The record is a 546-nucleotide RNA sequence from Drosophila subobscura, which matches "Bicoid 3'-UTR regulatory element" in Rfam.

RNA sequence: GGCGGCAGAUUUUAAUCAAACUUCAAGUGAUAUUCGCUCUUACCUCUCUGCUUUAUCGAAAACUUUCUCUGCCAUGCGUUCGUUGCUUCGUUUGUUUUUGGUUGGACAUUCCCCCAAAAGCCCAGGAAUUGCCUGCUAAAAUCAAUCGAGGUGUUUUAUGGGCUUGAACGCAUGCCGGAGAAAGUUAUUUUCCCCUCAUUUUAAGCAAAGGAAUCCCCUGGCUCUGAUACAAAUUUGUCAUAGCUAAAACCUGUCCUAAUCGAAAUGCAAAAUGUUUCUCUUGGCGGUAAUCAUAUAACAAUUGUUUUAUAUAAUUACCAUCUAAAGAUUGAACAUUUAAACAACUCAGAAUAUGCUAUGACAAAGCGUUGGCUUGUCGGACAUUUGGACAUUCUUUCUGCAAGAAAUGUCAGCAAAUCGUCUGCCGAAACAAGCCAAACAUUUGUUCGUCCUCGGAUUCCUUUACUGAUUUAUUUAUAUACCCAUUAUUAUAUUUUAAGAUCGUCUUUUAAUAUCACUUCAAGUUGCAUUGAAACCUGUUUAGCU
Dot-bracket structure: (((.((((.((.((((.....((.(((((((..............................(((((((.((.((((((((....((((((.(((.(.((((...(..(.(((............))).)...)..)))).).))).))))))..............)))))))).)).)))))))............(.(..(...((((((((.((...(...((..((((.((((.((((((((.....(.........((......((((((((.((((((..(((((......................)))))..))..))))..)))))))).......)).)..)).)))))).))))(..(((..((........((((.((.((((.......))))..))...))))...............)).))).)..)))).))...).)))))))))).....)..).)......................................))))))).)).....)))).)).))))...)))

Source information: Pairs were carried over by alignment from the consensus structure, which is taken from published work. Its family is annotated with regulation of bicoid mRNA localization in the Gene Ontology. This family represents the core structure of the bicoid 3'-UTR and consists of domains II, III, IV and V which are known to be essential for correct transport and localisation of bicoid mRNA during oocyte and embryo differentiation. On this family, see Brunel and Ehresmann, Biochimie 2004: "Secondary structure of the 3' UTR of bicoid mRNA".